[Rfam]
RNA sequence: CUCUGGAGAGCGGCGCCCGCUUCAGCAGGGCGCCCACCGAUGGGGCCAGGACGACCGUAGAGCAGCGUGUCGGCCAGACAAUCUCUCAGGUACAUGGACAGAG
Numbered sequence: 001c002u003c004u005g006g007a008g009a010g011c012g013g014c015g016c017c018c019g020c021u022u023c024a025g026c027a028g029g030g031c032g033c034c035c036a037c038c039g040a041u042g043g044g045g046c047c048a049g050g051a052c053g054a055c056c057g058u059a060g061a062g063c064a065g066c067g068u069g070u071c072g073g074c075c076a077g078a079c080a081a082u083c084u085c086u087c088a089g090g091u092a093c094a095u096g097g098a099c100a101g102a103g
Base pairs, nucleotide, nucleotide: 001103002102003101004100005099012034013033014032015031016030017029018028036091037090038089039087040086043085044084045083049079
The record is a 103-nucleotide sequence from Candidatus Accumulibacter adjunctus, which matches "Glycine riboswitch aptamer" in Rfam. The organism belongs to Candidatus Accumulibacter, within Bacteria.